A member of the RNA family "U11 spliceosomal RNA" from Ceutorhynchus assimilis, 133 nucleotides long.
RNA sequence: AAAAAGGGUGCUUGCUUCCUUAUAGCACAUGUAUCUUUUUCCGGGUACGUGGGGUAUGGUAAUCAACACAUACCCAGCACAUAAUUUUUGUCUUCGUGGGGCUGUUUUCUGGCUUUGAACCGAAGACGCCCCC
Dot-bracket structure: .......(((((((((.......))))(((((((((......)))))))))(((((((..........))))))))))))..................((((.(((((..((.(...).)).)))))))))..
Numbered sequence: 001a002a003a004a005a006g007g008g009u010g011c012u013u014g015c016u017u018c019c020u021u022a023u024a025g026c027a028c029a030u031g032u033a034u035c036u037u038u039u040u041c042c043g044g045g046u047a048c049g050u051g052g053g054g055u056a057u058g059g060u061a062a063u064c065a066a067c068a069c070a071u072a073c074c075c076a077g078c079a080c081a082u083a084a085u086u087u088u089u090g091u092c093u094u095c096g097u098g099g100g101g102c103u104g105u106u107u108u109c110u111g112g113c114u115u116u117g118a119a120c121c122g123a124a125g126a127c128g129c130c131c132c133c
Stems, first nucleotide, its partner, number of pairs: 008080005013027004028051009052075007099131004104127005111121002114118001
By type it is a spliceosomal small nuclear RNA. Its family is annotated with pre-mRNA 5'-splice site binding, U11 snRNP and mRNA 5'-splice site recognition in the Gene Ontology. The organism belongs to Ceutorhynchus, within Eukaryota.